[Rfam]
RNA: EFASI RNA
Organism: Salmonella enterica
RNA sequence: AAAGAUCGAUACCGAGGGGGGCAUGAUGCCCCGGAGAAUUCCUGCUCUGGCAGGCAGUCCGUACCCAGUACUGGCUGAAACUCCCUAUACCUCAACAAGUUGCCACUCCGGCGUGAAGGUAUCGUUCU
Numbered sequence: 001a002a003a004g005a006u007c008g009a010u011a012c013c014g015a016g017g018g019g020g021g022c023a024u025g026a027u028g029c030c031c032c033g034g035a036g037a038a039u040u041c042c043u044g045c046u047c048u049g050g051c052a053g054g055c056a057g058u059c060c061g062u063a064c065c066c067a068g069u070a071c072u073g074g075c076u077g078a079a080a081c082u083c084c085c086u087a088u089a090c091c092u093c094a095a096c097a098a099g100u101u102g103c104c105a106c107u108c109c110g111g112c113g114u115g116a117a118g119g120u121a122u123c124g125u126u127c128u
Base pairs, nucleotide, nucleotide: 002128004126005125007124008123009122010121011120012119013118018032019031020030021029022028023027033084034083035082036081041054042053043052044051045050055077056076057075058074061071062070063069064068
Dot-bracket structure: .(.((.(((((((....((((((...))))))((((....(((((....)))))((((..((((...))))..))))...)))).................................))))))))).)